Overview
Shown here is a 68-nucleotide RNA from Dracunculus medinensis, a member of the family "mir-72 microRNA precursor family". The organism belongs to Dracunculus, within Eukaryota. Its Rfam clan is "mir-31 microRNA precursor family".
[Rfam]
RNA sequence: UCGAGGCAAGAUGUUGGCAUAGCUGAAUGAACAUAUUAAUUUUCAGCUGUGCUACAUAUGGCCAUGUC
Numbered sequence: 001u002c003g004a005g006g007c008a009a010g011a012u013g014u015u016g017g018c019a020u021a022g023c024u025g026a027a028u029g030a031a032c033a034u035a036u037u038a039a040u041u042u043u044c045a046g047c048u049g050u051g052c053u054a055c056a057u058a059u060g061g062c063c064a065u066g067u068c
Base pairs, nucleotide, nucleotide: 005063006062007061011057012056013055014054016053017052018051022047023046024045025044026043
Dot-bracket structure: ....(((...((((.(((...(((((................)))))...)))))))...))).....